[Rfam]
RNA sequence: CUGGAGAAAGCGGGGGCCAUAGGAGCGUUCACGUUGCGGUCCCUGUCAGGUAUCUGUUUACCUGCGAAUCCUUCU
Dot-bracket structure: ............((((((..[[[[(((.......)))))))))...((((((......))))))....]]...]]
RNA: Mammalian CPEB3 ribozyme
Organism: Laticauda laticaudata